This 51-nucleotide RNA from Hylemonella gracilis belongs to the Rfam family "nhaA-I RNA". Taxonomically the source falls in Hylemonella gracilis (Bacteria, Pseudomonadota, Betaproteobacteria, Burkholderiales). Rfam describes the family as follows. Acidobacteria, Alphaproteobacteria, Betaproteobacteria and Gammaproteobacteria, Verrucomicrobia, cand. division NC10. It is annotated as a riboswitch. The sequence is in the family's curated seed alignment.
RNA sequence: GGGUGCGAUGCCGGUCGGCAUGGCAGGUACAGCGCAGGUCGGGCCGCCGCG
Numbered sequence: 001g002g003g004u005g006c007g008a009u010g011c012c013g014g015u016c017g018g019c020a021u022g023g024c025a026g027g028u029a030c031a032g033c034g035c036a037g038g039u040c041g042g043g044c045c046g047c048c049g050c051g
Stems, first nucleotide, its partner, number of pairs: 005024002008021005033051003037048003